[Rfam]
Nucleotides: 089
Stems, first nucleotide, its partner, number of pairs: 003087001005085003012079005018073001019071001021069004026064008035056004
Number, partner (000 for none) and nucleotide at each position: 001000a002000u003087a004000c005085c006084a007083c008000u009000u010000g011000a012079a013078g014077g015076c016075u017000c018073g019071c020000g021069a022068a023067a024066a025000u026064g027063u028062u029061c030060u031059g032058g033057u034000u035056g036055g037054c038053a039000u040000u041000g042000a043000u044000u045000g046000a047000a048000u049000g050000a051000u052000u053038u054037g055036u056035c057033a058032c059031c060030g061029g062028g063027a064026c065000c066024u067023u068022u069021u070000a071019g072000a073018c074000a075016a076015g077014c078013c079012u080000u081000c082000g083007g084006u085005g086000u087003u088000u089000u
Shown here is an 89-nucleotide RNA from Rhipicephalus microplus, a member of the family "mir-5316 microRNA precursor family". The source organism's lineage runs through Eukaryota, Eumetazoa, Arthropoda, Ixodidae and Boophilus.